[Rfam]
RNA sequence: UUUUCAUUUUGCGUACUCUCUCACCGGUCAGAGUGACGAGAAAGUGUGUGAAAUGAAGAGA
Numbered sequence: 001u002u003u004u005c006a007u008u009u010u011g012c013g014u015a016c017u018c019u020c021u022c023a024c025c026g027g028u029c030a031g032a033g034u035g036a037c038g039a040g041a042a043a044g045u046g047u048g049u050g051a052a053a054u055g056a057a058g059a060g061a
Base pairs, nucleotide, nucleotide: 001059002058003057004056005055006054007053010050012048013047014046015045016044017043019041020040021039022038
RNA: mir-8364 microRNA precursor family